RNA sequence: UUCUUAUCGAGAGAGGUGGAGGGACUGGCCCUGUGAAACCUCAGCAACCUGCUGCAAUCCACGAUUGCUGUCAAGGUGCUAAAUCCAGCGGAUUUAUCCGGAAGAUAAGAA
Numbered sequence: 001u002u003c004u005u006a007u008c009g010a011g012a013g014a015g016g017u018g019g020a021g022g023g024a025c026u027g028g029c030c031c032u033g034u035g036a037a038a039c040c041u042c043a044g045c046a047a048c049c050u051g052c053u054g055c056a057a058u059c060c061a062c063g064a065u066u067g068c069u070g071u072c073a074a075g076g077u078g079c080u081a082a083a084u085c086c087a088g089c090g091g092a093u094u095u096a097u098c099c100g101g102a103a104g105a106u107a108a109g110a111a
Base pairs, nucleotide, nucleotide: 001111002110003109004108005107006106007105008104013042014041015040016039017038021031022030023029025088026087027086028085043080044079045078046077048076049075051071052070084103089100090099091098092097

The family of this 111-nucleotide RNA from Bacillus smithii is "SAM riboswitch aptamer (S box leader)". The source organism's lineage runs through Bacteria, Bacillati, Bacilli, Bacillaceae and Bacillus smithii. The family's consensus secondary structure is taken from published work. It scores 92 bits against the family's covariance model.